[Rfam]
RNA sequence: CCUUCACUGAUGAGUAGCUUUCUGACUUUCGUUCUUCUGAUUUUGCUGAAGCCAGAUGCCACUUCUGAGAAGG
Numbered sequence: 001c002c003u004u005c006a007c008u009g010a011u012g013a014g015u016a017g018c019u020u021u022c023u024g025a026c027u028u029u030c031g032u033u034c035u036u037c038u039g040a041u042u043u044u045g046c047u048g049a050a051g052c053c054a055g056a057u058g059c060c061a062c063u064u065c066u067g068a069g070a071a072g073g
Base pairs, nucleotide, nucleotide: 001073002072003071005069